RNA sequence: GAGUUGCAGGUGGCCUUAUCCUCCUCCCAAGGGCGCCUGUGGGAAUGACAGCACUCCUCCUCCCAGCUGUCAUUCGGUUAUUUUCGAAAAGCCUGUCGCACCUCCUCCCGCGGCAGGCUUUUUCG
Numbered sequence: 001g002a003g004u005u006g007c008a009g010g011u012g013g014c015c016u017u018a019u020c021c022u023c024c025u026c027c028c029a030a031g032g033g034c035g036c037c038u039g040u041g042g043g044a045a046u047g048a049c050a051g052c053a054c055u056c057c058u059c060c061u062c063c064c065a066g067c068u069g070u071c072a073u074u075c076g077g078u079u080a081u082u083u084u085c086g087a088a089a090a091g092c093c094u095g096u097c098g099c100a101c102c103u104c105c106u107c108c109c110g111c112g113g114c115a116g117g118c119u120u121u122u123u124c125g
Stems, first nucleotide, its partner, number of pairs: 007039006014032003043075010089120011
RNA: Alphaproteobacterial ar14
Organism: Rhizobium metallidurans